The record is a 137-nucleotide sequence from Vibrio nereis, which matches "Histidine operon leader" in Rfam. Lineage of the source: Bacteria > Pseudomonadota > Vibrionales > Vibrionaceae > Vibrio. About the family: At least 6 amino acid operons are known to be regulated by attenuation. By type it is a cis-regulatory leader.
RNA sequence: UCACCAUCACCAUCACCCAGUCUAGUCUUUCGGGAGAUGUGCGCAUACCCGGGAGGCAGGAAACUCCCGGAGGUUAAAAUCGCUAAAUUCAGAUUUCAAACCCUCGGGAGACCAAAAUCUCCCGAGGGUUUUUUAGU
Numbered sequence: 001u002c003a004c005c006a007u008c009a010c011c012a013u014c015a016c017c018c019a020g021u022c023u024a025g026u027c028u029u030u031c032g033g034g035a036g037a038u039g040u041g042c043g044c045a046u047a048c049c050c051g052g053g054a055g056g057c058a059g060g061a062a063a064c065u066c067c068c069g070g071a072g073g074u075u076a077a078a079a080u081c082g083c084u085a086a087a088u089u090c091a092g093a094u095u096u097c098a099a100a101c102c103c104u105c106g107g108g109a110g111a112c113c114a115a116a117a118u119c120u121c122c123c124g125a126g127g128g129u130u131u132u133u134u135a136g137u
Base pairs, nucleotide, nucleotide: 009046011039012038013037014036017034018033020031048070049069051068052067053066054065055064098131099130100129101128102127103126104125105124106123107122108121109120110119
Dot-bracket structure: ........(.((((..((.(..........).)).))))......).((.(((((........)))))))...........................(((((((((((((........)))))))))))))......